[Rfam]
Antizyme RNA frameshifting stimulation element: a 56-nucleotide RNA sequence from Clupea harengus. For this family Rfam cites "Identification of a new antizyme mRNA +1 frameshifting stimulatory pseudoknot in a subset of diverse invertebrates and its apparent absence in intermediate species" (Ivanov et al., J Mol Biol, 2004). Rfam describes the family as follows. This family represents a structural element which is found in antizyme mRNA and is known to promote frameshifting. Antizyme genes have have two partially overlapping open reading frames, the second, which encodes the functional protein requires +1 translational frameshifting. This frameshift is stimulated by a pseudoknot present 3' of the frameshift site in the antizyme mRNA. The frameshifting efficiency is dependent on the level of polyamines in the cell, when the polyamine concentration is high frameshifting is more likely to occur which leads to an increase in the quantity of functional antizyme produced. The match comes from Rfam's covariance-model search (70 bits). The family's RNA type in Rfam is frameshift element.

Nucleotides: 056
Stems, first nucleotide, its partner, number of pairs: 006044006013037005025056006
Number, partner (000 for none) and nucleotide at each position: 001000u002000g003000a004000u005000g006044c007043c008042c009041c010040u011039c012000a013037c014036c015035c016034a017033c018000a019000g020000g021000u022000g023000a024000a025056g026055a027054u028053c029052c030051u031000g032000a033017g034016u035015g036014g037013g038000c039011g040010a041009g042008g043007g044006g045000a046000u047000g048000g049000c050000a051030g052029g053028g054027a055026u056025c